[Rfam]
RNA sequence: GUGCAUGUGAUGAUUAAGUAACAGUAUGAAAAACCGUGAUACUGUAAACGCUUUCUGAUGCA
Numbered sequence: 001g002u003g004c005a006u007g008u009g010a011u012g013a014u015u016a017a018g019u020a021a022c023a024g025u026a027u028g029a030a031a032a033a034c035c036g037u038g039a040u041a042c043u044g045u046a047a048a049c050g051c052u053u054u055c056u057g058a059u060g061c062a
Stems, first nucleotide, its partner, number of pairs: 002062004012054002017052003022044006